A member of the RNA family "mir-210 microRNA precursor family" from Megalops atlanticus, 98 nucleotides long. Taxonomically the source falls in Megalops (Eukaryota, Gnathostomata, Elopocephalai, Megalopidae).
RNA sequence: UCCAAAAGCAGGUGAGCCACUGACUAACGCACAUUGCGCGUUUUGCUCUGUCCACUGUGCGUGUGACAGCGGCUAACCAGCUUUUUGGGGUUUCGGUC
Numbered sequence: 001u002c003c004a005a006a007a008g009c010a011g012g013u014g015a016g017c018c019a020c021u022g023a024c025u026a027a028c029g030c031a032c033a034u035u036g037c038g039c040g041u042u043u044u045g046c047u048c049u050g051u052c053c054a055c056u057g058u059g060c061g062u063g064u065g066a067c068a069g070c071g072g073c074u075a076a077c078c079a080g081c082u083u084u085u086u087g088g089g090g091u092u093u094c095g096g097u098c
Stems, first nucleotide, its partner, number of pairs: 005084005011078002015074004020069003024065001025063002028061006035054002
The base pairs follow the family's consensus structure, which was predicted with WAR.
The match comes from Rfam's covariance-model search (76 bits).
Gene Ontology terms of the family: miRNA-mediated post-transcriptional gene silencing and RISC complex.
A reference for the family is Chen et al. (2005), "The developmental miRNA profiles of zebrafish as determined by small RNA cloning", Genes Dev.